[Rfam]
RNA sequence: CUGCCCCCACAACGGCUUCCUGACGUGGCGGGCUUUAAUCCAAUGGAGCG
Numbered sequence: 001c002u003g004c005c006c007c008c009a010c011a012a013c014g015g016c017u018u019c020c021u022g023a024c025g026u027g028g029c030g031g032g033c034u035u036u037a038a039u040c041c042a043a044u045g046g047a048g049c050g
Base pairs, nucleotide, nucleotide: 004032005031007028008027009026010025013022014021015049016048017047019046020045
SAM/SAH riboswitch aptamer: a 50-nucleotide RNA from Candidatus Rhodobacter oscarellae. Lineage of the source: Bacteria > Pseudomonadati > Alphaproteobacteria > Rhodobacterales > Rhodobacter. A search with the family's covariance model found it, with a score of 55 bits.